RNA: mir-26 microRNA precursor family
Organism: Bagarius yarrelli
RNA sequence: CUUUGGCCUGAUUCAAGUAAUCCAGGAUAGGCUUGUGAUGUCGGGAAAGCCUAUUCAGGAUCACUUGGUUCAGGAGCAAG
Numbered sequence: 001c002u003u004u005g006g007c008c009u010g011a012u013u014c015a016a017g018u019a020a021u022c023c024a025g026g027a028u029a030g031g032c033u034u035g036u037g038a039u040g041u042c043g044g045g046a047a048a049g050c051c052u053a054u055u056c057a058g059g060a061u062c063a064c065u066u067g068g069u070u071c072a073g074g075a076g077c078a079a080g
Base pairs, nucleotide, nucleotide: 002079003078007074008073009072010071011070014067015066016065017064018063020061021060022059025056026055027054028053029052030051031050032049033048